RNA: Guanidine-I riboswitch aptamer
Organism: Roseofilum reptotaenium
RNA sequence: AAUAACCGCUUCUAGGGUUCCGAUUGAGGUUUACCGUACUUCAGUGACUGGUCCAAGAGAAGCAAGCUAAAGUCUGUUAUGGAUCAGACUUUAGUUCCACGGCGGGAUAAAAGCCCGGGAGAU
Numbered sequence: 001a002a003u004a005a006c007c008g009c010u011u012c013u014a015g016g017g018u019u020c021c022g023a024u025u026g027a028g029g030u031u032u033a034c035c036g037u038a039c040u041u042c043a044g045u046g047a048c049u050g051g052u053c054c055a056a057g058a059g060a061a062g063c064a065a066g067c068u069a070a071a072g073u074c075u076g077u078u079a080u081g082g083a084u085c086a087g088a089c090u091u092u093a094g095u096u097c098c099a100c101g102g103c104g105g106g107a108u109a110a111a112a113g114c115c116c117g118g119g120a121g122a123u
Stems, first nucleotide, its partner, number of pairs: 008063005015054002020051002022048001023045008065096012098118001100121001104116003